[Rfam]
RNA sequence: UCAGGCAAUGAUUGUCCAAACGCAAUUCUUGUGCUAUUUGAUCCAAGAACUGUGUCUGGACAUCAGUGCUUGU
Numbered sequence: 001u002c003a004g005g006c007a008a009u010g011a012u013u014g015u016c017c018a019a020a021c022g023c024a025a026u027u028c029u030u031g032u033g034c035u036a037u038u039u040g041a042u043c044c045a046a047g048a049a050c051u052g053u054g055u056c057u058g059g060a061c062a063u064c065a066g067u068g069c070u071u072g073u
Stems, first nucleotide, its partner, number of pairs: 002072006009065004014061005021054004026049006
The family of this 73-nucleotide sequence from Mytilus coruscus is "mir-219 microRNA precursor family". For this family Rfam cites "Vertebrate microRNA genes" (Lim et al., Science, 2003).